[Rfam]
RNA: Mammalian CPEB3 ribozyme
RNA sequence: UCACAAAUUCAGGGCCACAGCAGAAGUGCUCACAGCAUGGCCUGUCAGUUUGCAAACAAAAUCUGCAAAUUCUGGU
Numbered sequence: 001u002c003a004c005a006a007a008u009u010c011a012g013g014g015c016c017a018c019a020g021c022a023g024a025a026g027u028g029c030u031c032a033c034a035g036c037a038u039g040g041c042c043u044g045u046c047a048g049u050u051u052g053c054a055a056a057c058a059a060a061a062u063c064u065g066c067a068a069a070u071u072c073u074g075g076u
Base pairs, nucleotide, nucleotide: 013042014041015040016039019076021074022073023072024071025070026038027037028036046065047064048063050061051060